[Rfam]
Record summary: Rfam assigns this 114-nucleotide sequence from Oreochromis niloticus to the family "Potassium channel RNA editing signal".
RNA sequence: GUAGGCUAUGGUGACAUGUACCCAGCAACAGUGUGGGGCAAGAUGGUGGGCUCUAUGUGCGCCAUUGCUGGUGUUCUUACCAUUUCGUUGCCUGUUCCUGUCAUUGUGUCCAAC
Numbered sequence: 001g002u003a004g005g006c007u008a009u010g011g012u013g014a015c016a017u018g019u020a021c022c023c024a025g026c027a028a029c030a031g032u033g034u035g036g037g038g039c040a041a042g043a044u045g046g047u048g049g050g051c052u053c054u055a056u057g058u059g060c061g062c063c064a065u066u067g068c069u070g071g072u073g074u075u076c077u078u079a080c081c082a083u084u085u086c087g088u089u090g091c092c093u094g095u096u097c098c099u100g101u102c103a104u105u106g107u108g109u110c111c112a113a114c
Stems, first nucleotide, its partner, number of pairs: 001114002004111002007108005013102004018097001020095002037077002040074001049063003
By type it is a cis-regulatory element.